Shown here is a 77-nucleotide RNA sequence from Alligator mississippiensis, a member of the family "Mammalian CPEB3 ribozyme". The match comes from Rfam's covariance-model search (55 bits).

RNA sequence: AGUCAUAAGUUGGAGGCCACAGCAGAAGUACUCACAGUGCAACCCUGUCAGAUUCCAAUGAAUCUGUGAAUUCUGCU
Numbered sequence: 001a002g003u004c005a006u007a008a009g010u011u012g013g014a015g016g017c018c019a020c021a022g023c024a025g026a027a028g029u030a031c032u033c034a035c036a037g038u039g040c041a042a043c044c045c046u047g048u049c050a051g052a053u054u055c056c057a058a059u060g061a062a063u064c065u066g067u068g069a070a071u072u073c074u075g076c077u
Stems, first nucleotide, its partner, number of pairs: 013045001015044002021077007028040003049066007